This 73-nucleotide RNA from Polypedilum vanderplanki belongs to the Rfam family "mir-3 microRNA precursor family". The family has 28 seed sequences and 52 matches in Rfam 15.1. On this family, see Aravin et al., Dev Cell 2003: "The small RNA profile during Drosophila melanogaster development". The match comes from Rfam's covariance-model search (54 bits). Pairs were carried over by alignment from the consensus structure, which was predicted with RNAalifold. Its family is annotated with RISC complex and miRNA-mediated post-transcriptional gene silencing in the Gene Ontology.
RNA sequence: CUUUUGCGAUAAACCAUGUUCAGUGUGACAUUCAAUUUUUAAAUUUGUCACUGGGCAAAGUUUGUUGCAAAAA
Numbered sequence: 001c002u003u004u005u006g007c008g009a010u011a012a013a014c015c016a017u018g019u020u021c022a023g024u025g026u027g028a029c030a031u032u033c034a035a036u037u038u039u040u041a042a043a044u045u046u047g048u049c050a051c052u053g054g055g056c057a058a059a060g061u062u063u064g065u066u067g068c069a070a071a072a073a
Stems, first nucleotide, its partner, number of pairs: 005069010017057003021053004